[Rfam]
RNA: U4atac minor spliceosomal RNA
Organism: Menidia menidia
RNA sequence: GCCGUCCUUGUCUCGGGGUGGUCGGGAGGCUCUAUGAACGGAUAGUGAGAGUCUCCCCGCUGACACCGUACCGACACAUGCGCGCCCCCCGAGCGCGUGCUCGGGACCAGGCGCAAUUUUUGGAAAC
Number, nucleotide and partner (000 for none) at each position: 001g000002c000003c000004g000005u000006c018007c017008u016009u015010g000011u000012c000013u000014c000015g009016g008017g007018g006019u000020g000021g060022u059023c000024g057025g000026g055027a054028g053029g052030c051031u050032c049033u000034a000035u000036g000037a000038a046039c045040g000041g000042a000043u000044a000045g039046u038047g000048a000049g032050a031051g030052u029053c028054u027055c026056c000057c024058c000059g022060c021061u000062g000063a000064c000065a000066c000067c000068g000069u000070a000071c000072c000073g000074a000075c000076a000077c000078a000079u000080g000081c000082g114083c113084g112085c111086c110087c000088c000089c105090c104091g102092a101093g100094c099095g000096c000097g000098u000099g094100c093101u092102c091103g000104g090105g089106a000107c000108c000109a000110g086111g085112c084113g083114c082115a000116a000117u000118u000119u000120u000121u000122g000123g000124a000125a000126a000127c000